[Rfam]
RNA sequence: GAGAGUAGGCGUAGGCAGUUGCAGAUUAGUCAUUCAGACUGGUUUGAGGAAAGUCCGGGCUCCCGAAAGACCAGACUUGCUGGAUAACGUCCAGUGCGAGUGAUCGUGAGGAUAGUGCCACAGAAAGAUACCGCCAGUCAAUUUAUUGGUUGGUAAGGGUGCAAAGGUGCGGUAAGAGCGCACCAGCAGCGUCGAGAGGCGUUGGCUCGGUAAACCCCGGUUGGGAGCAAGGCCACAAGGAACUACGGUUGGUCUUUUACCAGUUCCGCUGAAAAAGAGCCGCUAGAGGUGUUUGGUAACAAGCAUCCCAGAUAGAUAACUGCCCUCGCAAGAGAACAGAACCCGGCUUACUACCGACUCUCUCUU
Numbered sequence: 001g002a003g004a005g006u007a008g009g010c011g012u013a014g015g016c017a018g019u020u021g022c023a024g025a026u027u028a029g030u031c032a033u034u035c036a037g038a039c040u041g042g043u044u045u046g047a048g049g050a051a052a053g054u055c056c057g058g059g060c061u062c063c064c065g066a067a068a069g070a071c072c073a074g075a076c077u078u079g080c081u082g083g084a085u086a087a088c089g090u091c092c093a094g095u096g097c098g099a100g101u102g103a104u105c106g107u108g109a110g111g112a113u114a115g116u117g118c119c120a121c122a123g124a125a126a127g128a129u130a131c132c133g134c135c136a137g138u139c140a141a142u143u144u145a146u147u148g149g150u151u152g153g154u155a156a157g158g159g160u161g162c163a164a165a166g167g168u169g170c171g172g173u174a175a176g177a178g179c180g181c182a183c184c185a186g187c188a189g190c191g192u193c194g195a196g197a198g199g200c201g202u203u204g205g206c207u208c209g210g211u212a213a214a215c216c217c218c219g220g221u222u223g224g225g226a227g228c229a230a231g232g233c234c235a236c237a238a239g240g241a242a243c244u245a246c247g248g249u250u251g252g253u254c255u256u257u258u259a260c261c262a263g264u265u266c267c268g269c270u271g272a273a274a275a276a277g278a279g280c281c282g283c284u285a286g287a288g289g290u291g292u293u294u295g296g297u298a299a300c301a302a303g304c305a306u307c308c309c310a311g312a313u314a315g316a317u318a319a320c321u322g323c324c325c326u327c328g329c330a331a332g333a334g335a336a337c338a339g340a341a342c343c344c345g346g347c348u349u350a351c352u353a354c355c356g357a358c359u360c361u362c363u364c365u366u
Stems, first nucleotide, its partner, number of pairs: 001362006008355002011351001014324007022046009051349003055346005060227004069256002074222003078219002080094005095109001096107004110217002115215002117211003131158002133154009166184006186206001187204007231281003239267006247261003251257001288307008